[Rfam]
RNA sequence: AGCACUUGUGAUUGUUUUUAUCUAUCUUGUGAACGAACUUACAGAUAGGUGUAAAAGUAAAUUCUCUUUUGCAGCCCAAAACUCAUUGUCCAGUAUGAAUUUUGAUAUACAUAAGAAGGAAUAUC
Numbered sequence: 001a002g003c004a005c006u007u008g009u010g011a012u013u014g015u016u017u018u019u020a021u022c023u024a025u026c027u028u029g030u031g032a033a034c035g036a037a038c039u040u041a042c043a044g045a046u047a048g049g050u051g052u053a054a055a056a057g058u059a060a061a062u063u064c065u066c067u068u069u070u071g072c073a074g075c076c077c078a079a080a081a082c083u084c085a086u087u088g089u090c091c092a093g094u095a096u097g098a099a100u101u102u103u104g105a106u107a108u109a110c111a112u113a114a115g116a117a118g119g120a121a122u123a124u125c
Base pairs, nucleotide, nucleotide: 002052003051004050005049006048007047008046009045014038015037018036019035021033026031061122062121063120064119065118067116068115069114070113071112077104078103079102080101081100083098084097085096086095
This 125-nucleotide sequence from Tupaia belangeri belongs to the Rfam family "Small nucleolar RNA SNORA40". By type it is an H/ACA-box small nucleolar RNA. Rfam describes the family as follows. The snoRNA ACA 40 belongs to the H/ACA family of snoRNAs and guides the pseudouridylation of 28S rRNA subunit at position U4565. NB This family has a high threshold value to exclude a large number of closely related sequences that do not appear to have conserved H and ACA boxes, and may be pseudogenes. It scores 98 bits against the family's covariance model. Its family is annotated with nucleolus and RNA processing in the Gene Ontology. Pairs were carried over by alignment from the consensus structure, which was predicted with RNAalifold. NCBI's taxonomy places the organism under Eukaryota, Metazoa, Gnathostomata, Euarchontoglires, Tupaia belangeri.